[Rfam]
Source information: The record is a 135-nucleotide RNA from Clupea harengus, which matches "Small nucleolar RNA SNORA69" in Rfam. About the family: U69 is a member of the H/ACA class of small nucleolar RNAs (snoRNAs) which act as guides in the the modification of uridines to pseudouridines.
RNA sequence: AAAGCAGGUUGCAAUUACAGUGCUUCAUUCUGUGGGAGUACUGCCAUUAUCCUGCUGACAGUAAAGUUUACAAUACUUUGGAAUUAUUUAUCCUGGUCACUGAAGUGAUGGGGAUGCUCUGAAGUACUGACAGCU
Numbered sequence: 001a002a003a004g005c006a007g008g009u010u011g012c013a014a015u016u017a018c019a020g021u022g023c024u025u026c027a028u029u030c031u032g033u034g035g036g037a038g039u040a041c042u043g044c045c046a047u048u049a050u051c052c053u054g055c056u057g058a059c060a061g062u063a064a065a066g067u068u069u070a071c072a073a074u075a076c077u078u079u080g081g082a083a084u085u086a087u088u089u090a091u092c093c094u095g096g097u098c099a100c101u102g103a104a105g106u107g108a109u110g111g112g113g114a115u116g117c118u119c120u121g122a123a124g125u126a127c128u129g130a131c132a133g134c135u
Base pairs, nucleotide, nucleotide: 003056004055005054006053007052008051018043019042020041021040022039023038024037025036026035071129072128074126075125076124077123078122079121080120081119089116090115091114092113093112094111096109097108098107099106100105
Dot-bracket structure: ..((((((.........(((((((((........))))))))).......))))))..............((.((((((((.......((((((.(((((....))))).))))))..)))))))).))......
It scores 79 bits against the family's covariance model.